RNA sequence: CGCGGCGUCAUUGGGGAGUAGCCGCUCUUUUCCCAAAGAGGCUUGUGUCAACAUAAUUGAUCCACAGAUCAUGGCAUAAGCAGUCCUUCAUACUGGUAGCAACUAACGGCUUGUUACCUGUCUGACGACCUGGCAAGACCUUUGACCACAACGCCUCCGAAUGGCCGGGGAUGCGUAGUGGUCAUUCGUCUUUAAACCGGCCAGGAUU
Numbered sequence: 001c002g003c004g005g006c007g008u009c010a011u012u013g014g015g016g017a018g019u020a021g022c023c024g025c026u027c028u029u030u031u032c033c034c035a036a037a038g039a040g041g042c043u044u045g046u047g048u049c050a051a052c053a054u055a056a057u058u059g060a061u062c063c064a065c066a067g068a069u070c071a072u073g074g075c076a077u078a079a080g081c082a083g084u085c086c087u088u089c090a091u092a093c094u095g096g097u098a099g100c101a102a103c104u105a106a107c108g109g110c111u112u113g114u115u116a117c118c119u120g121u122c123u124g125a126c127g128a129c130c131u132g133g134c135a136a137g138a139c140c141u142u143u144g145a146c147c148a149c150a151a152c153g154c155c156u157c158c159g160a161a162u163g164g165c166c167g168g169g170g171a172u173g174c175g176u177a178g179u180g181g182u183c184a185u186u187c188g189u190c191u192u193u194a195a196a197c198c199g200g201c202c203a204g205g206a207u208u
Stems, first nucleotide, its partner, number of pairs: 026039003041081010058071005082208006

Annotation: Manganese Mn2+ riboswitch aptamer (yybP-ykoY): a 208-nucleotide RNA sequence from Gynuella sunshinyii. The base pairs follow the family's consensus structure. It scores 83 bits against the family's covariance model. For this family Rfam cites "Novel small RNA-encoding genes in the intergenic regions of Escherichia coli" (Argaman et al., Curr Biol, 2001).